[Rfam]
RNA sequence: CCACGGGGACGACCCCGCGGGUCAUGUUAUCGACGCGGGACGACCCGC
Numbered sequence: 001c002c003a004c005g006g007g008g009a010c011g012a013c014c015c016c017g018c019g020g021g022u023c024a025u026g027u028u029a030u031c032g033a034c035g036c037g038g039g040a041c042g043a044c045c046c047g048c
Stems, first nucleotide, its partner, number of pairs: 001020002004017005035048005
RNA: Guanidine-II riboswitch aptamer (mini-ykkC)
Organism: Thiocapsa marina